[Rfam]
RNA sequence: UUUUGAGUGGUGAUGAACAAUUGUGUUUUGGAUAGUUUCUGAUACGGCUACUUUGUGGUAGUCGUUGAAGACCAAACCCUUGGCUGUCUGAACUCAAAU
Number, nucleotide and partner (000 for none) at each position: 001u000002u098003u097004u096005g095006a094007g093008u092009g000010g000011u000012g000013a000014u000015g000016a000017a000018c000019a000020a000021u000022u000023g000024u000025g000026u000027u000028u000029u000030g000031g000032a000033u000034a000035g000036u070037u069038u068039c067040u000041g000042a000043u060044a059045c058046g000047g056048c055049u000050a000051c000052u000053u000054u000055g048056u047057g000058g045059u044060a043061g000062u000063c000064g000065u000066u000067g039068a038069a037070g036071a000072c000073c000074a000075a000076a000077c000078c000079c000080u000081u000082g000083g000084c000085u000086g000087u000088c000089u000090g000091a000092a008093c007094u006095c005096a004097a003098a002099u000